The family of this 77-nucleotide sequence from Electrophorus electricus is "mir-92 microRNA precursor family". The family has 23 seed sequences and 1,347 matches in Rfam 15.1. Lineage of the source: Eukaryota > Deuterostomia > Craniata > Actinopterygii > Electrophorus. Its family is annotated with RISC complex and miRNA-mediated post-transcriptional gene silencing in the Gene Ontology.
[Rfam]
RNA sequence: CUUCCUGCGCAGGCUGGGAUUGGCGUCAAUGCUGGACCCAGAAGCGUAUUGCACUAGUCCCGGCCUGUGGAGGACGG
Numbered sequence: 001c002u003u004c005c006u007g008c009g010c011a012g013g014c015u016g017g018g019a020u021u022g023g024c025g026u027c028a029a030u031g032c033u034g035g036a037c038c039c040a041g042a043a044g045c046g047u048a049u050u051g052c053a054c055u056a057g058u059c060c061c062g063g064c065c066u067g068u069g070g071a072g073g074a075c076g077g
Stems, first nucleotide, its partner, number of pairs: 004073003009068006016061005022055002027051006
Dot-bracket structure: ...(((..((((((.(((((.((...((((((.............))))))..)).))))).))))))..)))....
This family represents the microRNA precursor mir-92. Human miR-92 has two predicted hairpin precursor sequences: mir-92-1 on chromosome 13 and mir-92-2 on chromosome X. miR-92 has also been cloned from mouse embryonic stem cells. The mature sequence is excised from the 3' arm of the hairpin. The literature on the family includes a 2003 paper in Dev Cell by Houbaviy et al., "Embryonic stem cell-specific MicroRNAs".